[Rfam]
RNA: Plastid-clpP 5UTR RNA
RNA sequence: AAUUCUGUUUAUAAUACGAAAAAAGAAGCAGAUCUAUUCUAUACUCGAUAAGUGCCAAUAUGCAAUGGGU
Numbered sequence: 001a002a003u004u005c006u007g008u009u010u011a012u013a014a015u016a017c018g019a020a021a022a023a024a025g026a027a028g029c030a031g032a033u034c035u036a037u038u039c040u041a042u043a044c045u046c047g048a049u050a051a052g053u054g055c056c057a058a059u060a061u062g063c064a065a066u067g068g069g070u
Stems, first nucleotide, its partner, number of pairs: 003023002006020001007017002044069003052061003